The family of this 235-nucleotide RNA sequence from Medicago truncatula is "MIR2655 microRNA precursor family".
RNA sequence: CCCUUAAAUAAUAAAAAUUCCGUUUAGAUCCCUUAACUUUAUUUAAAGUAACAGUUUGGUCUCUUCUGUUAAUUUAAUUCAAAACAACGUUAAAUUUUGGUCUUUUAACUUAUUUAAUUAGUAUUAGUUUGGUCCCUAAACUUAACGUUUUUUUGAAUUAAAUUAACAGAAAGGAUCAAACCAAUACUUUAAAUAAAGUUAAAGGACCUAAACAGACAUUUUAUUAUUUAUGGGA
Numbered sequence: 001c002c003c004u005u006a007a008a009u010a011a012u013a014a015a016a017a018u019u020c021c022g023u024u025u026a027g028a029u030c031c032c033u034u035a036a037c038u039u040u041a042u043u044u045a046a047a048g049u050a051a052c053a054g055u056u057u058g059g060u061c062u063c064u065u066c067u068g069u070u071a072a073u074u075u076a077a078u079u080c081a082a083a084a085c086a087a088c089g090u091u092a093a094a095u096u097u098u099g100g101u102c103u104u105u106u107a108a109c110u111u112a113u114u115u116a117a118u119u120a121g122u123a124u125u126a127g128u129u130u131g132g133u134c135c136c137u138a139a140a141c142u143u144a145a146c147g148u149u150u151u152u153u154u155g156a157a158u159u160a161a162a163u164u165a166a167c168a169g170a171a172a173g174g175a176u177c178a179a180a181c182c183a184a185u186a187c188u189u190u191a192a193a194u195a196a197a198g199u200u201a202a203a204g205g206a207c208c209u210a211a212a213c214a215g216a217c218a219u220u221u222u223a224u225u226a227u228u229u230a231u232g233g234g235a
Stems, first nucleotide, its partner, number of pairs: 002233002005230004023212003027208001029206001031204001033202011045190003
Record summary
The organism belongs to Medicago, within Eukaryota. The match comes from Rfam's covariance-model search (192 bits).